[Rfam]
RNA sequence: CUCGCCGUGAGGUUUAAGAGGGCUGAAGGAAGGUGCAGGCAAACCUCUGCCCCAACGCACAGAAACCAUUUCAGGCUGAACACGGAGGAUAAGGCUGCUAAACAAGCCAAAGUCCAAUAACUGCGCGGAAUCCGACACAGUAAAAAUGGUGGGGACAUGGAGGGAAAGAACGUGUG
Numbered sequence: 001c002u003c004g005c006c007g008u009g010a011g012g013u014u015u016a017a018g019a020g021g022g023c024u025g026a027a028g029g030a031a032g033g034u035g036c037a038g039g040c041a042a043a044c045c046u047c048u049g050c051c052c053c054a055a056c057g058c059a060c061a062g063a064a065a066c067c068a069u070u071u072c073a074g075g076c077u078g079a080a081c082a083c084g085g086a087g088g089a090u091a092a093g094g095c096u097g098c099u100a101a102a103c104a105a106g107c108c109a110a111a112g113u114c115c116a117a118u119a120a121c122u123g124c125g126c127g128g129a130a131u132c133c134g135a136c137a138c139a140g141u142a143a144a145a146a147u148g149g150u151g152g153g154g155a156c157a158u159g160g161a162g163g164g165a166a167a168g169a170a171c172g173u174g175u176g
Stems, first nucleotide, its partner, number of pairs: 001020003004013003033175004040168001044163006050154005066149005075141003083134004087115004093108004
Rfam assigns this 176-nucleotide sequence from Blautia pseudococcoides to the family "Group II catalytic intron D1-D4-3". NCBI's taxonomy places the organism under Bacteria, Bacillota, Clostridia, Lachnospirales, Blautia. The pairing is the family consensus, mapped onto this sequence. A search with the family's covariance model found it, with a score of 114 bits.